[Rfam]
Nucleotides: 048
Stems, first nucleotide, its partner, number of pairs: 001020008035048005
Number, partner (000 for none) and nucleotide at each position: 001020g002019c003018g004017g005016g006015g007014g008013g009000a010000c011000g012000g013008c014007c015006u016005c017004u018003c019002g020001c021000g022000g023000a024000u025000c026000u027000c028000c029000a030000g031000a032000a033000u034000g035048c036047c037046g038045g039044g040000a041000c042000g043000g044039c045038c046037c047036g048035g

Guanidine-II riboswitch aptamer (mini-ykkC): a 48-nucleotide RNA sequence from Methyloceanibacter marginalis. The literature on the family includes a 2017 paper in Biochemistry by Sherlock et al., "Biochemical Validation of a Second Guanidine Riboswitch Class in Bacteria". The family's consensus secondary structure is taken from published work. The match comes from Rfam's covariance-model search (39 bits).